Overview:
Plastid-ccsA-ndhD-1 3UTR RNA: a 57-nucleotide RNA sequence from Camellia sinensis. Its Rfam clan is "Plastid-ccsA_ndhD 3UTR RNA clan". A search with the family's covariance model found it, with a score of 52 bits. For this family Rfam cites "Retrograde signaling in plants: A critical review focusing on the GUN pathway and beyond" (Richter et al., Plant Commun, 2023). About the family: Plastid-ccsA-ndhD-1 is a non-coding RNA (ncRNA) recognised in plastids. It was found in the three prime untranslated region (3UTR) of ccsA and ndhD genes, its 3UTR location suggests a role in transcript maturation. Lineage of the source: Eukaryota > Embryophyta > Mesangiospermae > Gunneridae > Camellia.
RNA sequence: AAGCCGGCAAGAAUCAUGCGAAUCACUACACUACUUGAUUCAAAUGGUUCUCAUAAA
Numbered sequence: 001a002a003g004c005c006g007g008c009a010a011g012a013a014u015c016a017u018g019c020g021a022a023u024c025a026c027u028a029c030a031c032u033a034c035u036u037g038a039u040u041c042a043a044a045u046g047g048u049u050c051u052c053a054u055a056a057a
Stems, first nucleotide, its partner, number of pairs: 007054001010051008020041006